[Rfam]
RNA sequence: CCUAUGGAGAGUAUACAAAAUUGUGAGUAGAAAUGUUUCAAUAUUUUCAAAAACAUACUCUAAUGAAGUAGGAA
Numbered sequence: 001c002c003u004a005u006g007g008a009g010a011g012u013a014u015a016c017a018a019a020a021u022u023g024u025g026a027g028u029a030g031a032a033a034u035g036u037u038u039c040a041a042u043a044u045u046u047u048c049a050a051a052a053a054c055a056u057a058c059u060c061u062a063a064u065g066a067a068g069u070a071g072g073a074a
Stems, first nucleotide, its partner, number of pairs: 001072005009060005022055003030048003033044002
The record is a 74-nucleotide RNA from Eubacterium sp. CAG:274, which matches "RAGATH-18 RNA" in Rfam.
The family's RNA type in Rfam is small RNA.
Lineage of the source: Bacteria > Clostridia > Eubacteriales > Eubacteriaceae > Eubacterium.
It is one of the family's seed sequences.